[Rfam]
RNA sequence: UUUCCCAUUUGACUACCACAUUUUCUCCAAUUAAUACCUUUUAGUGGCUAUGCUUAUGGGAUAGGUUAAAAUUGCCAUGAUCUGAAGAGGGAGGGACUUUUGGUACCCUUCUAUAUGAAAAAGCUGGACAGAAAUCA
Numbered sequence: 001u002u003u004c005c006c007a008u009u010u011g012a013c014u015a016c017c018a019c020a021u022u023u024u025c026u027c028c029a030a031u032u033a034a035u036a037c038c039u040u041u042u043a044g045u046g047g048c049u050a051u052g053c054u055u056a057u058g059g060g061a062u063a064g065g066u067u068a069a070a071a072u073u074g075c076c077a078u079g080a081u082c083u084g085a086a087g088a089g090g091g092a093g094g095g096a097c098u099u100u101u102g103g104u105a106c107c108c109u110u111c112u113a114u115a116u117g118a119a120a121a122a123g124c125u126g127g128a129c130a131g132a133a134a135u136c137a
Base pairs, nucleotide, nucleotide: 004060005059006058007057016047017046018045019044074124075123092112093111094110095109
Rfam assigns this 137-nucleotide sequence from Oryctolagus cuniculus to the family "Small nucleolar RNA SNORA29". ACA29 is a member of the H/ACA class of snoRNA that guide the sites of modification of uridines to pseudouridines. The source organism's lineage runs through Eukaryota, Vertebrata, Theria, Euarchontoglires and Oryctolagus. Rfam classes the family as an H/ACA-box small nucleolar RNA. Rfam links the family to the GO terms RNA processing and nucleolus.